Rfam assigns this 131-nucleotide RNA sequence from Albugo candida to the family "U11 spliceosomal RNA". The family's consensus secondary structure is taken from published work. It scores 64 bits against the family's covariance model.
RNA sequence: AAAAAGGGCAGGUCCUUUAUAGGACUUAGGCAGGCGUCAAGCCAAAUGCUUGAGGUGAAUCGCGAUCAAGAGAUUUGCUCUGCGUAAUUUUUAUUAGCCGACUGUAUUGGCCUUGAGGGCUGAAUCAGCGG
Numbered sequence: 001a002a003a004a005a006g007g008g009c010a011g012g013u014c015c016u017u018u019a020u021a022g023g024a025c026u027u028a029g030g031c032a033g034g035c036g037u038c039a040a041g042c043c044a045a046a047u048g049c050u051u052g053a054g055g056u057g058a059a060u061c062g063c064g065a066u067c068a069a070g071a072g073a074u075u076u077g078c079u080c081u082g083c084g085u086a087a088u089u090u091u092u093a094u095u096a097g098c099c100g101a102c103u104g105u106a107u108u109g110g111c112c113u114u115g116a117g118g119g120c121u122g123a124a125u126c127a128g129c130g131g
Base pairs, nucleotide, nucleotide: 008083009082010081011080012079013024014023015022016021025054026053027052028051029050030049031048032047033043034042035041055078056077057076058075059074060073061072102128103127104126106125107124108123110120111119112118113117